[Rfam]
RNA sequence: AAUACCAAAGGCAAACUAUGCGAAAGCAUAGGACGCAAAGCCACGGGUCUAAAGCGAUUGCAUGACAGCCGGGUUGCCAUCA
Numbered sequence: 001a002a003u004a005c006c007a008a009a010g011g012c013a014a015a016c017u018a019u020g021c022g023a024a025a026g027c028a029u030a031g032g033a034c035g036c037a038a039a040g041c042c043a044c045g046g047g048u049c050u051a052a053a054g055c056g057a058u059u060g061c062a063u064g065a066c067a068g069c070c071g072g073g074u075u076g077c078c079a080u081c082a
Stems, first nucleotide, its partner, number of pairs: 003079001011036002016031006034068001039075004044071003047066003
c-di-GMP-I-GGC riboswitch aptamer: an 82-nucleotide RNA from Paenibacillus sp. UNCCL117. It scores 68 bits against the family's covariance model. Rfam 15.1 lists 1,298 matches to the family in 717 species. Taxonomically the source falls in Paenibacillus (Bacteria, Bacillati, Caryophanales, Paenibacillaceae).